[Rfam]
Nucleotides: 096
Base pairs, nucleotide, nucleotide: 001092002091003090004089005088007086008085010084011083015079016075017074018073019072020071021070033061035059037057038056
Number, partner (000 for none) and nucleotide at each position: 001092g002091g003090c004089u005088g006000a007086u008085c009000u010084g011083a012000u013000g014000g015079u016075a017074g018073u019072g020071g021070g022000u023000u024000a025000c026000c027000a028000g029000a030000a031000c032000u033061u034000a035059u036000u037057a038056a039000u040000a041000u042000u043000a044000g045000u046000g047000u048000c049000a050000c051000u052000g053000a054000a055000g056038u057037u058000g059035g060000g061033a062000u063000a064000c065000c066000a067000c068000c069000c070021c071020c072019u073018a074017c075016u076000g077000c078000u079015a080000a081000a082000u083011u084010u085008g086007a087000c088005u089004g090003g091002c092001u093000u094000a095000a096000a
Y RNA: a 96-nucleotide RNA sequence from Sapajus apella. The organism belongs to Sapajus, within Eukaryota. The family's consensus secondary structure is taken from published work. By type it is a non-coding RNA gene. A reference for the family is Teunissen et al. (2000), "Conserved features of Y RNAs: a comparison of experimentally derived secondary structures", Nucleic Acids Res.